[Rfam]
RNA: Archaeal signal recognition particle RNA
RNA sequence: CGGCGAGUUAGGCUAGGGAGUUAGCGGUCCCCACUUCGAAAACCCGCUAUAUGUCGGGCCGAAGCUCCGGAGAGGCGUCUGGAACUAUCCGCCGGCUCGGUUCGCGGCGUAGACGCCUCGUCCUGCAGGGUCGCAGGUGAUGGACCCUCGGCCGGAGGGCUGGGGCAAACCAUCCUUGCCUGCUGAACCCGGUCAGGGACGGAAGUCCGCAGCCGUAGGCAGGACUGUUGGCGCUUGCGGGGUCGCGGGGCCGAGCUUGCGGCCGAGCGUCUGGCGGGUAGGAAAGGGCACCCAUCCGUAGCGCGCUCGCCG
Numbered sequence: 001c002g003g004c005g006a007g008u009u010a011g012g013c014u015a016g017g018g019a020g021u022u023a024g025c026g027g028u029c030c031c032c033a034c035u036u037c038g039a040a041a042a043c044c045c046g047c048u049a050u051a052u053g054u055c056g057g058g059c060c061g062a063a064g065c066u067c068c069g070g071a072g073a074g075g076c077g078u079c080u081g082g083a084a085c086u087a088u089c090c091g092c093c094g095g096c097u098c099g100g101u102u103c104g105c106g107g108c109g110u111a112g113a114c115g116c117c118u119c120g121u122c123c124u125g126c127a128g129g130g131u132c133g134c135a136g137g138u139g140a141u142g143g144a145c146c147c148u149c150g151g152c153c154g155g156a157g158g159g160c161u162g163g164g165g166c167a168a169a170c171c172a173u174c175c176u177u178g179c180c181u182g183c184u185g186a187a188c189c190c191g192g193u194c195a196g197g198g199a200c201g202g203a204a205g206u207c208c209g210c211a212g213c214c215g216u217a218g219g220c221a222g223g224a225c226u227g228u229u230g231g232c233g234c235u236u237g238c239g240g241g242g243u244c245g246c247g248g249g250g251c252c253g254a255g256c257u258u259g260c261g262g263c264c265g266a267g268c269g270u271c272u273g274g275c276g277g278g279u280a281g282g283a284a285a286g287g288g289c290a291c292c293c294a295u296c297c298g299u300a301g302c303g304c305g306c307u308c309g310c311c312g
Stems, first nucleotide, its partner, number of pairs: 001312008011060004016032003020028002037056003041052001064302003068298004074292002077289002079286002085281010095268008106257003110253001115251007122241008130232004134227003137176001139174005146165008179223006190215004198207003